let-7 microRNA precursor family: an 82-nucleotide RNA from Oryzias javanicus.
Rfam links the family to the GO terms RISC complex and miRNA-mediated post-transcriptional gene silencing.
For this family Rfam cites "Control of developmental timing in animals" (Rougvie, Nat Rev Genet, 2001).
RNA sequence: CAGGGCUGAGGUAGUAGAUUGAAUAGUUGUGGGGUUCAUCUCCUCCGUUUGAGAUAACUAUACAGUCUACUGUCUUUCCUUA
Dot-bracket structure: .((((..((((((((((((((.(((((......(.........).(......)...))))).)))))))))))))).)))).